[Rfam]
RNA sequence: ACUGCCCCAGAUUGUGUUGCAGGUGUGGCUGCAGUGCCGUGUUUGUGUCAUUCGGUGGCAGAGAGGAUAAGGCGAGGUGCUCUGGCCCACGUGGGCUCCCAGGAUUGCUCAACAACCUGACAUU
Numbered sequence: 001a002c003u004g005c006c007c008c009a010g011a012u013u014g015u016g017u018u019g020c021a022g023g024u025g026u027g028g029c030u031g032c033a034g035u036g037c038c039g040u041g042u043u044u045g046u047g048u049c050a051u052u053c054g055g056u057g058g059c060a061g062a063g064a065g066g067a068u069a070a071g072g073c074g075a076g077g078u079g080c081u082c083u084g085g086c087c088c089a090c091g092u093g094g095g096c097u098c099c100c101a102g103g104a105u106u107g108c109u110c111a112a113c114a115a116c117c118u119g120a121c122a123u124u
Base pairs, nucleotide, nucleotide: 002061003060004059005058006057007055008054010052011051014048015047019046020045021044022043024041025040026039027038028037029036070118071117072116074113077108078107079106081104082103083101084100085096086095087094088093